[Rfam]
RNA sequence: GGGCAGGAUAGGUGAAGUAGGCCCACCCGCAAGCGGCUUGUCCUUCUUCACGGCGCCUUAUUCGCACUGCGUGCUCAACGGGCGUCCUGCUCUGCGAGGCC
Numbered sequence: 001g002g003g004c005a006g007g008a009u010a011g012g013u014g015a016a017g018u019a020g021g022c023c024c025a026c027c028c029g030c031a032a033g034c035g036g037c038u039u040g041u042c043c044u045u046c047u048u049c050a051c052g053g054c055g056c057c058u059u060a061u062u063c064g065c066a067c068u069g070c071g072u073g074c075u076c077a078a079c080g081g082g083c084g085u086c087c088u089g090c091u092c093u094g095c096g097a098g099g100c101c
Base pairs, nucleotide, nucleotide: 001092002091003090004089005088006087007086008085009084012051013050014049015048016047017046019044020043021042025038027036028035029034055083056082057081058080064074065073066072067071

The family of this 101-nucleotide sequence is "traJ-II RNA". The family's consensus secondary structure is taken from published work.